[Rfam]
RNA sequence: UGAGCAUGGGGGCCAUAGCAUAAGUGUUCAUGUUGUGACCCCUGUCAGGUAAUACCUGUGAAUUCUGCU
Numbered sequence: 001u002g003a004g005c006a007u008g009g010g011g012g013c014c015a016u017a018g019c020a021u022a023a024g025u026g027u028u029c030a031u032g033u034u035g036u037g038a039c040c041c042c043u044g045u046c047a048g049g050u051a052a053u054a055c056c057u058g059u060g061a062a063u064u065c066u067g068c069u
Base pairs, nucleotide, nucleotide: 009042010041011040012039014037017069018068019067020066022064023063024036025035026034046058047057048056049055050054

Mammalian CPEB3 ribozyme: a 69-nucleotide RNA sequence from Alligator mississippiensis. Rfam's curators write: The mammalian CPEB3 ribozyme is a self cleaving RNA located in the second intron of the CPEB3 gene which belongs to a family of genes regulating messenger RNA polyadenylation. The base pairs follow the family's consensus structure, which is taken from published work. The organism belongs to Alligator, within Eukaryota.